[Rfam]
RNA sequence: GAUGGUCCUCGGUAGUGGUUUCCGCGAACAGAUAUAAGUAUUUGUGCGCGUGAACUUCGAUCGAAGACUCUU
Number, nucleotide and partner (000 for none) at each position: 001g072002a071003u000004g069005g068006u067007c066008c000009u064010c063011g062012g061013u060014a000015g000016u000017g056018g055019u054020u053021u052022c000023c050024g049025c048026g047027a000028a000029c046030a045031g000032a000033u000034a000035u000036a000037a000038g000039u000040a000041u000042u000043u000044g000045u030046g029047c026048g025049c024050g023051u000052g021053a020054a019055c018056u017057u000058c000059g000060a013061u012062c011063g010064a009065a000066g007067a006068c005069u004070c000071u002072u001
The family of this 72-nucleotide sequence is "Actino-pnp RNA".
The family's RNA type in Rfam is cis-regulatory element.
Rfam's curators put it in the seed alignment.
Pairs were carried over by alignment from the consensus structure, which is taken from published work.